A member of the RNA family "Plant signal recognition particle RNA" from Triticum aestivum, 280 nucleotides long.

RNA sequence: GCCGAGCUCAGUUGCGAGAGCUUGUAACCCGAGUGGGGGCAUUACGCUAUUGUAGCGUUGCGGGCUUGGUCUGGGUGUGCUAUUGCUGGCCCGCCCGUUCCAAGUUGCGUAGUGGACCGCUGGGGCUUAUGCGAAAGUUGGGCCUCACGGUCCAUAAUGUGGCAGGCACAGCGUGAGGCUGGCUUCACAGAGCAGCGACAACUGCCCGCUUUAAACGGUGGAAGGAUAACGGGCCGCUGCACUCCUAGGCCGCUUGGGCCUCGCAGCCUAUUCUAGUGAA
Numbered sequence: 001g002c003c004g005a006g007c008u009c010a011g012u013u014g015c016g017a018g019a020g021c022u023u024g025u026a027a028c029c030c031g032a033g034u035g036g037g038g039g040c041a042u043u044a045c046g047c048u049a050u051u052g053u054a055g056c057g058u059u060g061c062g063g064g065c066u067u068g069g070u071c072u073g074g075g076u077g078u079g080c081u082a083u084u085g086c087u088g089g090c091c092c093g094c095c096c097g098u099u100c101c102a103a104g105u106u107g108c109g110u111a112g113u114g115g116a117c118c119g120c121u122g123g124g125g126c127u128u129a130u131g132c133g134a135a136a137g138u139u140g141g142g143c144c145u146c147a148c149g150g151u152c153c154a155u156a157a158u159g160u161g162g163c164a165g166g167c168a169c170a171g172c173g174u175g176a177g178g179c180u181g182g183c184u185u186c187a188c189a190g191a192g193c194a195g196c197g198a199c200a201a202c203u204g205c206c207c208g209c210u211u212u213a214a215a216c217g218g219u220g221g222a223a224g225g226a227u228a229a230c231g232g233g234c235c236g237c238u239g240c241a242c243u244c245c246u247a248g249g250c251c252g253c254u255u256g257g258g259c260c261u262c263g264c265a266g267c268c269u270a271u272u273c274u275a276g277u278g279a280a
Base pairs, nucleotide, nucleotide: 001040002039003038004023005022006021007020008019009018028037029036030035045278046277047276048275049274052271053270054269055268058266059265060264061263062262063261064260066258067257068251069250070249071248072247073246074245075244077242078241079240081239082238087236088235089234090233091232092231093230095225096224098223099222100221101220102219104216105215106214109212111210112209113208114153115152116151117150118149119148121147122146123145124144125143126142127141128140129139131138132137161206162205163204164203165202172197173196174195179190180189181188
Gene Ontology terms of the family: signal recognition particle, endoplasmic reticulum targeting and SRP-dependent cotranslational protein targeting to membrane, signal sequence recognition. NCBI's taxonomy places the organism under Eukaryota, Viridiplantae, Magnoliopsida, Triticeae, Triticum. It scores 197 bits against the family's covariance model.